[Rfam]
RNA sequence: UUCAAGGUUUUCUAGGGUUCCGCAGUAUCAGAACUGGUCAGGUCCGAGAGAAAACGCACGGCUUCGGCUGUGUACACGGAGGGACAAAAGCCCGGGAGGA
Numbered sequence: 001u002u003c004a005a006g007g008u009u010u011u012c013u014a015g016g017g018u019u020c021c022g023c024a025g026u027a028u029c030a031g032a033a034c035u036g037g038u039c040a041g042g043u044c045c046g047a048g049a050g051a052a053a054a055c056g057c058a059c060g061g062c063u064u065c066g067g068c069u070g071u072g073u074a075c076a077c078g079g080a081g082g083g084a085c086a087a088a089a090g091c092c093c094g095g096g097a098g099g100a
Base pairs, nucleotide, nucleotide: 007055008054009053010052011051012050015045016044020042021041022039023036024035025034026033056073057072058071059070060069061068062067075095077098081093082092083091